Background
This 64-nucleotide RNA from Streptomyces sp. SID7982 belongs to the Rfam family "ASdes TB sRNA".

RNA sequence: AGUUUGUCCGGGUCCACGGCGCGCGAGGUGAGCAGGUAGUCGCGCAUCACGAUGCCGUGGCGGC
Numbered sequence: 001a002g003u004u005u006g007u008c009c010g011g012g013u014c015c016a017c018g019g020c021g022c023g024c025g026a027g028g029u030g031a032g033c034a035g036g037u038a039g040u041c042g043c044g045c046a047u048c049a050c051g052a053u054g055c056c057g058u059g060g061c062g063g064c
Base pairs, nucleotide, nucleotide: 004063005062006061008059012029013028015027017025018024035056036055037054038053040052041051042050044048